This 143-nucleotide RNA sequence from Hansschlegelia quercus belongs to the Rfam family "Alphaproteobacterial sRNA ar45". The literature on the family includes a 2012 paper in RNA Biol by del Val et al., "A survey of sRNA families in alpha-proteobacteria". The source organism's lineage runs through Bacteria, Pseudomonadati, Alphaproteobacteria, Methylopilaceae and Hansschlegelia. Rfam classes the family as a small RNA.
RNA sequence: GCCCAAUUUCGCGCGUGCCUGUGUCGUGUGUCGGGUUGGCGGGAACUCCCCGCCGGGCAACCCGAUGGCCGGAAAUCCCAACCGGCUCUAAGUCGCCUCUCCGGCGGCGGACGCGACGUGAAGCGACGACGUAGAGGGCUUUU
Dot-bracket structure: ((((....(((....(((....((((((((((((....((((.......))))........))))).(((((.........)))))((....................))))))))).....))).)))......))))....